[Rfam]
RNA: Histone 3' UTR stem-loop
Organism: Acanthaster planci
RNA sequence: UCCCCGGUUCUUCUCAGAACCACACAUACUCAGAGAAGAGAUAAAU
Numbered sequence: 001u002c003c004c005c006g007g008u009u010c011u012u013c014u015c016a017g018a019a020c021c022a023c024a025c026a027u028a029c030u031c032a033g034a035g036a037a038g039a040g041a042u043a044a045a046u
Stems, first nucleotide, its partner, number of pairs: 006021006